[Rfam]
RNA sequence: CCACGCAACCGGGGAGAUAGCGGUGCCCUGUACCUGCAAUCCGCUACAGCAGGGGUGAUGCCAAUCCGAGGGUUUUUCAUUGUGGAGCUGCCCUCUAUAAGUGGCGUUGACGUCUGGGUCUUGCACAACAGAACUCUGUGAACCGUGUCAGGUCAGGAAUGAAGCAGCACUAAGCAGAACCUUUUGUGUGUUGCAAGGGUGCCUGGGCCGAGUUAACUGUAGAGGUAACGUCUGUGGUGGGAAUUCGAAGUGCGGCGCGUGG
Numbered sequence: 001c002c003a004c005g006c007a008a009c010c011g012g013g014g015a016g017a018u019a020g021c022g023g024u025g026c027c028c029u030g031u032a033c034c035u036g037c038a039a040u041c042c043g044c045u046a047c048a049g050c051a052g053g054g055g056u057g058a059u060g061c062c063a064a065u066c067c068g069a070g071g072g073u074u075u076u077u078c079a080u081u082g083u084g085g086a087g088c089u090g091c092c093c094u095c096u097a098u099a100a101g102u103g104g105c106g107u108u109g110a111c112g113u114c115u116g117g118g119u120c121u122u123g124c125a126c127a128a129c130a131g132a133a134c135u136c137u138g139u140g141a142a143c144c145g146u147g148u149c150a151g152g153u154c155a156g157g158a159a160u161g162a163a164g165c166a167g168c169a170c171u172a173a174g175c176a177g178a179a180c181c182u183u184u185u186g187u188g189u190g191u192u193g194c195a196a197g198g199g200u201g202c203c204u205g206g207g208c209c210g211a212g213u214u215a216a217c218u219g220u221a222g223a224g225g226u227a228a229c230g231u232c233u234g235u236g237g238u239g240g241g242a243a244u245u246c247g248a249a250g251u252g253c254g255g256c257g258c259g260u261g262g
Stems, first nucleotide, its partner, number of pairs: 001262006008056003011029004016024001018022001033053005061255002066250001070246005076241010089227002093224006101217002103214003112208008120197006126188002129186005135178005145170004153162003

Shown here is a 262-nucleotide RNA sequence from Marvinbryantia formatexigens, a member of the family "Bacterial large signal recognition particle RNA". Pairs were carried over by alignment from the consensus structure, which is taken from published work. NCBI's taxonomy places the organism under Bacteria, Bacillati, Bacillota, Marvinbryantia, Marvinbryantia formatexigens. Rfam's curators write: The signal recognition particle (SRP) is a universally conserved ribonucleoprotein involved in the co-translational targeting of proteins to membranes. For this family Rfam cites "SRPDB: Signal Recognition Particle Database" (Rosenblad et al., Nucleic Acids Res, 2003).